[Rfam]
Shown here is a 184-nucleotide RNA from Hypnocyclicus thermotrophus, a member of the family "glmS glucosamine-6-phosphate activated ribozyme aptamer". About the family: This entry contains a glucosamine-6-phosphate activated ribozyme that is found in the mRNA for GlmS. GlmS is an enzyme that uses fructose-6-phosphate and glutamine to generate glucosamine-6-phosphate. The ribozyme catalyses self cleavage of the glmS mRNA that is thought to regulate GlmS activity. Rfam classes the family as a riboswitch.

RNA sequence: AAAAAAGAUUUAGCGCCAGAACUAAGUUAAAAAUACAAAGUUUUACUUUAAUUAAAUUUUUUUAUCUUAGUUGACGAGGAGAGAAGUUAUCGAAUUUUCGGCGGAUGCUUCUACGGUUGCUGCAGCCUUAGAAAUACACAAAUCUAUAAGGUGACUUAUAGGACAAAAGUAUUCAAGCAGCGUU
Numbered sequence: 001a002a003a004a005a006a007g008a009u010u011u012a013g014c015g016c017c018a019g020a021a022c023u024a025a026g027u028u029a030a031a032a033a034u035a036c037a038a039a040g041u042u043u044u045a046c047u048u049u050a051a052u053u054a055a056a057u058u059u060u061u062u063u064a065u066c067u068u069a070g071u072u073g074a075c076g077a078g079g080a081g082a083g084a085a086g087u088u089a090u091c092g093a094a095u096u097u098u099c100g101g102c103g104g105a106u107g108c109u110u111c112u113a114c115g116g117u118u119g120c121u122g123c124a125g126c127c128u129u130a131g132a133a134a135u136a137c138a139c140a141a142a143u144c145u146a147u148a149a150g151g152u153g154a155c156u157u158a159u160a161g162g163a164c165a166a167a168a169g170u171a172u173u174c175a176a177g178c179a180g181c182g183u184u
Base pairs, nucleotide, nucleotide: 020072021071022070023069024068025067026066029063030062031061032060033059082112083111084110085109086108090101091100092099093098115127116126117125118124119123133173134172135171136170137169144161145160146159147158148157149156150155
Dot-bracket structure: ...................(((((((..(((((.........................)))))..))))))).........(((((...((((....))))......)))))..(((((...))))).....(((((......(((((((....))))))).......)))))...........